[Rfam]
RNA sequence: UUGCCCCUUUUUUGCCCACCCUGGACCUAAAAUUGUCCAAGGUGCCGAACACAGGGGGGUAGAGCAGCUCUCUCAUAAACCUGUAGUGAAGGCACAAAUCCUCACUGCGGAUCCUGUCGGGAGAAACAAUU
Numbered sequence: 001u002u003g004c005c006c007c008u009u010u011u012u013u014g015c016c017c018a019c020c021c022u023g024g025a026c027c028u029a030a031a032a033u034u035g036u037c038c039a040a041g042g043u044g045c046c047g048a049a050c051a052c053a054g055g056g057g058g059g060u061a062g063a064g065c066a067g068c069u070c071u072c073u074c075a076u077a078a079a080c081c082u083g084u085a086g087u088g089a090a091g092g093c094a095c096a097a098a099u100c101c102u103c104a105c106u107g108c109g110g111a112u113c114c115u116g117u118c119g120g121g122a123g124a125a126a127c128a129a130u131u
Base pairs, nucleotide, nucleotide: 002061003060004059005058006057007056008055009054010053014050017047021042070123071122072121073120074119081110082109083108084107085106086105087104089102091101094099
Small nucleolar RNA SNORA26: a 131-nucleotide RNA sequence from Gouania willdenowi.
Pairs were carried over by alignment from the consensus structure, which was predicted with RNAalifold.
A reference for the family is Huttenhofer et al. (2001), "RNomics: an experimental approach that identifies 201 candidates for novel, small, non-messenger RNAs in mouse", EMBO J.
About the family: The snoRNA HBI-6 belong to the H/ACA family of snoRNAs, guiding the pseudouridylation of position U4522 if the 28S rRNA. HBI-6 is the human orthologue of mouse MBI-6 snoRNA.
NCBI's taxonomy places the organism under Eukaryota, Metazoa, Euteleostomi, Gobiesocoidei, Gouania.